[Rfam]
RNA sequence: AAUUAAAGUAGAGGUGCGAAGUUAAAGAGUAUCCGGUUUGAUGUAUAUGGAGCAUUUGAGAGCCGGGGAAAGGGAAGUUCGCCGAAGGGUAUGUCAGCCCAUAAUGAUAUAUUCUGGUUGUGCAGUUAAGAGCUGUAUGACUGUCAUCGUAAGAUGGAGAGCUACUUAAUAG
Numbered sequence: 001a002a003u004u005a006a007a008g009u010a011g012a013g014g015u016g017c018g019a020a021g022u023u024a025a026a027g028a029g030u031a032u033c034c035g036g037u038u039u040g041a042u043g044u045a046u047a048u049g050g051a052g053c054a055u056u057u058g059a060g061a062g063c064c065g066g067g068g069a070a071a072g073g074g075a076a077g078u079u080c081g082c083c084g085a086a087g088g089g090u091a092u093g094u095c096a097g098c099c100c101a102u103a104a105u106g107a108u109a110u111a112u113u114c115u116g117g118u119u120g121u122g123c124a125g126u127u128a129a130g131a132g133c134u135g136u137a138u139g140a141c142u143g144u145c146a147u148c149g150u151a152a153g154a155u156g157g158a159g160a161g162c163u164a165c166u167u168a169a170u171a172g
Base pairs, nucleotide, nucleotide: 006167007166008165009164010163011162016082017081018080019079020078022076023075032067033066034065035064036063037062038061039060086115087114088113089112090111091110092109093108094107095106096105116142117141118140119139120138121137122136123135124134125133126132144157145156146155147154148153
This 172-nucleotide RNA from Coprococcus sp. CAG:782 belongs to the Rfam family "Lysine riboswitch aptamer". It scores 118 bits against the family's covariance model. The family's consensus secondary structure is taken from published work. Lineage of the source: Bacteria > Bacillota > Lachnospirales > Lachnospiraceae > Coprococcus. Riboswitches are metabolite binding domains within certain messenger RNAs that serve as precision sensors for their corresponding targets. Allosteric rearrangement of mRNA structure is mediated by ligand binding, and this results in modulation of gene expression.